[Rfam]
RNA: FMN riboswitch aptamer (RFN element)
RNA sequence: CUGCUGUUUCAGGGCGGGGUGGAAUUCCCCACUGGCGGUAUAUCGGCGCGCGGCAUGAGGGCCGCGUGGAUCCGAUGAGCCCGCGAACCUGCGAGGCGUUGGGUCGCCUGCAGGCCGAACCGGUGAGAGCCCGGUGCCAACGGUUAAAGGCCGGAUGGAAGAGGCAGGUG
Numbered sequence: 001c002u003g004c005u006g007u008u009u010c011a012g013g014g015c016g017g018g019g020u021g022g023a024a025u026u027c028c029c030c031a032c033u034g035g036c037g038g039u040a041u042a043u044c045g046g047c048g049c050g051c052g053g054c055a056u057g058a059g060g061g062c063c064g065c066g067u068g069g070a071u072c073c074g075a076u077g078a079g080c081c082c083g084c085g086a087a088c089c090u091g092c093g094a095g096g097c098g099u100u101g102g103g104u105c106g107c108c109u110g111c112a113g114g115c116c117g118a119a120c121c122g123g124u125g126a127g128a129g130c131c132c133g134g135u136g137c138c139a140a141c142g143g144u145u146a147a148a149g150g151c152c153g154g155a156u157g158g159a160a161g162a163g164g165c166a167g168g169u170g
Stems, first nucleotide, its partner, number of pairs: 004167007017029003032149001033139002035084004088114006119135005141153003
Dot-bracket structure: ...(((((((......(((.......)))..[((((((..........................................))))...((((((...............))))))....(((((.......)))))..)).(((.....].))).......)))))))...